[Rfam]
About this RNA:
Shown here is a 107-nucleotide RNA sequence from Cloacibacillus porcorum, a member of the family "TPP riboswitch aptamer (THI element)". Gene Ontology term of the family: thiamine pyrophosphate binding. The source organism's lineage runs through Bacteria, Thermotogati, Synergistia, Synergistaceae and Cloacibacillus.

RNA sequence: GCCGCAGUUACGGGGAGCCUGAACUUUCAGGCUGAGAGGAGGCUGGCCCUCGACCCGAUGAACCUGAUGUGGGUAAUGCCACCGUAGGGAGAAUAGCUUGGAUCAGA
Numbered sequence: 001g002c003c004g005c006a007g008u009u010a011c012g013g014g015g016a017g018c019c020u021g022a023a024c025u026u027u028c029a030g031g032c033u034g035a036g037a038g039g040a041g042g043c044u045g046g047c048c049c050u051c052g053a054c055c056c057g058a059u060g061a062a063c064c065u066g067a068u069g070u071g072g073g074u075a076a077u078g079c080c081a082c083c084g085u086a087g088g089g090a091g092a093a094u095a096g097c098u099u100g101g102a103u104c105a106g107a
Stems, first nucleotide, its partner, number of pairs: 007094003011057004017032005039051004063088004069082004